[Rfam]
RNA sequence: AGAUGCAGAUCGGGAGAAUCGCAUCUGCGAUGCCGAAGGAGCAACCGCCCCGGAAACUCUCAGGCCCAAGGACCGAUCACGACGC
Numbered sequence: 001a002g003a004u005g006c007a008g009a010u011c012g013g014g015a016g017a018a019u020c021g022c023a024u025c026u027g028c029g030a031u032g033c034c035g036a037a038g039g040a041g042c043a044a045c046c047g048c049c050c051c052g053g054a055a056a057c058u059c060u061c062a063g064g065c066c067c068a069a070g071g072a073c074c075g076a077u078c079a080c081g082a083c084g085c
Base pairs, nucleotide, nucleotide: 008078009077010076011075012074013073019030020029021028022027032065033064034063035061036060039059040058041057045053046052